[Rfam]
Background: Rfam assigns this 77-nucleotide RNA sequence to the family "RAGATH-18 RNA". By type it is a small RNA.
RNA sequence: ACUGUGGAGUAUAGAAGAACUUGUGAGUAGUAUAUUUAAUUUAUUAGAUUAUGAAAGCAUAUACAUUGAAGCAGUAA
Numbered sequence: 001a002c003u004g005u006g007g008a009g010u011a012u013a014g015a016a017g018a019a020c021u022u023g024u025g026a027g028u029a030g031u032a033u034a035u036u037u038a039a040u041u042u043a044u045u046a047g048a049u050u051a052u053g054a055a056a057g058c059a060u061a062u063a064c065a066u067u068g069a070a071g072c073a074g075u076a077a
Base pairs, nucleotide, nucleotide: 001075002074003073004072005071009064010063011062012061013060022059023058024057030052031051032050035047036046